TPP riboswitch aptamer (THI element): a 105-nucleotide sequence from Saccharomonospora viridis.
RNA sequence: CUGCGUCCGCACGGGAGCCCAAGAGGGCUGAGAGGGAGCGGGGGCGCUCCGACCGUGGAACCUGAUCCGGGUCAUACCGGCGCAGGGAGCGUGAUCGUCUGGUGA
Numbered sequence: 001c002u003g004c005g006u007c008c009g010c011a012c013g014g015g016a017g018c019c020c021a022a023g024a025g026g027g028c029u030g031a032g033a034g035g036g037a038g039c040g041g042g043g044g045c046g047c048u049c050c051g052a053c054c055g056u057g058g059a060a061c062c063u064g065a066u067c068c069g070g071g072u073c074a075u076a077c078c079g080g081c082g083c084a085g086g087g088a089g090c091g092u093g094a095u096c097g098u099c100u101g102g103u104g105a
Stems, first nucleotide, its partner, number of pairs: 006093001008091003011056004017028004035050005061086004067080004

About the family: Vitamin B(1) in its active form thiamin pyrophosphate (TPP) is an essential coenzyme that is synthesised by coupling of pyrimidine and thiazole moieties in bacteria. The match comes from Rfam's covariance-model search (64 bits). The family's consensus secondary structure is taken from published work.